[Rfam]
RNA sequence: UAUUGGAAAGUAGCGCUGGUGCCGGAUCUGAUAAUAGAUCCGAGCAGACGAGGAAGAGGUUCAUCGAGCAGUCAGCGGAUGCCUCUCGGCCCGGCCUGUGGUCGUCAGCCUGCCGACAAAACCGCAAGGCGACUUGCGGCACAAAACGGCGGUAGCAGGGAGU
Numbered sequence: 001u002a003u004u005g006g007a008a009a010g011u012a013g014c015g016c017u018g019g020u021g022c023c024g025g026a027u028c029u030g031a032u033a034a035u036a037g038a039u040c041c042g043a044g045c046a047g048a049c050g051a052g053g054a055a056g057a058g059g060u061u062c063a064u065c066g067a068g069c070a071g072u073c074a075g076c077g078g079a080u081g082c083c084u085c086u087c088g089g090c091c092c093g094g095c096c097u098g099u100g101g102u103c104g105u106c107a108g109c110c111u112g113c114c115g116a117c118a119a120a121a122c123c124g125c126a127a128g129g130c131g132a133c134u135u136g137c138g139g140c141a142c143a144a145a146a147c148g149g150c151g152g153u154a155g156c157a158g159g160g161a162g163u
Base pairs, nucleotide, nucleotide: 020046021045022044023042024041025040026039027038028037055086056085057084058083059082064075066073067072087104088103089102090101091100110152111151112150113149114148115147122139123138124137125136126135127134128133

Shown here is a 163-nucleotide RNA from Methylomusa anaerophila, a member of the family "glmS glucosamine-6-phosphate activated ribozyme aptamer".
About the family: This entry contains a glucosamine-6-phosphate activated ribozyme that is found in the mRNA for GlmS. GlmS is an enzyme that uses fructose-6-phosphate and glutamine to generate glucosamine-6-phosphate.
The source organism's lineage runs through Bacteria, Bacillota, Negativicutes, Selenomonadales and Methylomusa.
The base pairs follow the family's consensus structure, which is taken from published work.
The match comes from Rfam's covariance-model search (97 bits).